Rfam assigns this 55-nucleotide RNA from Myotis davidii to the family "Antizyme RNA frameshifting stimulation element". By type it is a frameshift element. Pairs were carried over by alignment from the consensus structure, which is taken from published work. Rfam's curators write: This family represents a structural element which is found in antizyme mRNA and is known to promote frameshifting. Antizyme genes have have two partially overlapping open reading frames, the second, which encodes the functional protein requires +1 translational frameshifting.
RNA sequence: UGGUGCCCUUCACCCACUGAGGACGAUCCCCGCUGGGCGAGGGGCGGCAGGGAUC
Numbered sequence: 001u002g003g004u005g006c007c008c009u010u011c012a013c014c015c016a017c018u019g020a021g022g023a024c025g026a027u028c029c030c031c032g033c034u035g036g037g038c039g040a041g042g043g044g045c046g047g048c049a050g051g052g053a054u055c
Stems, first nucleotide, its partner, number of pairs: 007043005013037004018032001025055006